[Rfam]
RNA sequence: AAUCAUACAGAAGGAAUUCUCUUGUCAGUAUCGGUGGGUUUUCAGACUGCGUUCUGCCAUGGCAACUUUUGGUGAAGUAGUGUUUGCGAAGGCAUUGGAUCAUUAUGGAAUUGUCAGCUCACGAAACAGCCUUCAGCUUUGCAAUGGCCGUUAUUGCUGGAGGAUGCUUGUGGUUGGUGUUGGAAGCAUCACCGGGACCCAUCUCGAGUUGGAGUCAAAGUUUCGUGCUUGUCUGGUGCUGUGAAAGACCCCUUCCAUCAAGUUGAGUCUUAUAAUUCUGUGUCGCACUGUUGAAGCUGGGUUGCAUUGUUGGAUCUAGGACAGGCCUUGUUUGGUGUGGUAGUCCUGGCUGUUCUCUCGCCUGAAAAUGGUGUGGAGGACAGCCCCCC
Numbered sequence: 001a002a003u004c005a006u007a008c009a010g011a012a013g014g015a016a017u018u019c020u021c022u023u024g025u026c027a028g029u030a031u032c033g034g035u036g037g038g039u040u041u042u043c044a045g046a047c048u049g050c051g052u053u054c055u056g057c058c059a060u061g062g063c064a065a066c067u068u069u070u071g072g073u074g075a076a077g078u079a080g081u082g083u084u085u086g087c088g089a090a091g092g093c094a095u096u097g098g099a100u101c102a103u104u105a106u107g108g109a110a111u112u113g114u115c116a117g118c119u120c121a122c123g124a125a126a127c128a129g130c131c132u133u134c135a136g137c138u139u140u141g142c143a144a145u146g147g148c149c150g151u152u153a154u155u156g157c158u159g160g161a162g163g164a165u166g167c168u169u170g171u172g173g174u175u176g177g178u179g180u181u182g183g184a185a186g187c188a189u190c191a192c193c194g195g196g197a198c199c200c201a202u203c204u205c206g207a208g209u210u211g212g213a214g215u216c217a218a219a220g221u222u223u224c225g226u227g228c229u230u231g232u233c234u235g236g237u238g239c240u241g242u243g244a245a246a247g248a249c250c251c252c253u254u255c256c257a258u259c260a261a262g263u264u265g266a267g268u269c270u271u272a273u274a275a276u277u278c279u280g281u282g283u284c285g286c287a288c289u290g291u292u293g294a295a296g297c298u299g300g301g302u303u304g305c306a307u308u309g310u311u312g313g314a315u316c317u318a319g320g321a322c323a324g325g326c327c328u329u330g331u332u333u334g335g336u337g338u339g340g341u342a343g344u345c346c347u348g349g350c351u352g353u354u355c356u357c358u359c360g361c362c363u364g365a366a367a368a369u370g371g372u373g374u375g376g377a378g379g380a381c382a383g384c385c386c387c388c389c
Stems, first nucleotide, its partner, number of pairs: 196216003199212003218230004